Shown here is a 134-nucleotide RNA from Rheinheimera nanhaiensis, a member of the family "Molybdenum/Tungsten riboswitch aptamer (Moco RNA motif)".
[Rfam]
Nucleotides: 134
Stems, first nucleotide, its partner, number of pairs: 004127001013118004019057006027049003034043003059074005076101006083094004102111002
Number, partner (000 for none) and nucleotide at each position: 001000u002000u003000a004127a005000c006000g007000a008000c009000a010000c011000a012000a013118c014117a015116c016115c017000g018000a019057g020056c021055a022054a023053g024052g025000c026000g027049u028048u029047c030000u031000a032000a033000a034043g035042c036041u037000g038000a039000a040000a041036a042035g043034c044000a045000a046000u047029g048028a049027a050000g051000c052024c053023u054022u055021u056020g057019c058000c059074g060073u061072g062071g063070c064000a065000c066000u067000a068000a069000c070063g071062c072061c073060a074059c075000c076101g077100g078099g079098u080097a081096a082000g083094g084093u085092u086091g087000g088000a089000a090000a091086c092085g093084g094083c095000a096081u097080u098079a099078c100077c101076u102111c103110c104000c105000c106000a107000c108000u109000u110103g111102g112000a113000a114000a115016g116015g117014u118013g119000a120000a121000u122000u123000a124000u125000g126000u127004u128000a129000a130000c131000u132000g133000a134000c